RNA: Small Cajal body specific RNA 8
Organism: Castor canadensis
RNA sequence: UGGGAGGCUGAUACGCAAAUUGGGCUGAAAUACUGCUCUAAUUGUCACCAUACCUCCCUAGAAUAAAAGCUGCCUUUUGAUGACCGGGAUGAAUUGAGUGAAAUCGUUAACGGACAGACACGGGGCAGUUUAAA
Numbered sequence: 001u002g003g004g005a006g007g008c009u010g011a012u013a014c015g016c017a018a019a020u021u022g023g024g025c026u027g028a029a030a031u032a033c034u035g036c037u038c039u040a041a042u043u044g045u046c047a048c049c050a051u052a053c054c055u056c057c058c059u060a061g062a063a064u065a066a067a068a069g070c071u072g073c074c075u076u077u078u079g080a081u082g083a084c085c086g087g088g089a090u091g092a093a094u095u096g097a098g099u100g101a102a103a104u105c106g107u108u109a110a111c112g113g114a115c116a117g118a119c120a121c122g123g124g125g126c127a128g129u130u131u132a133a134a
Base pairs, nucleotide, nucleotide: 002058003057004056005055006054007053015045016044017043018042022038023037024036025035070128071127072126073125074124075123076122084113085112086111089107090106091105092104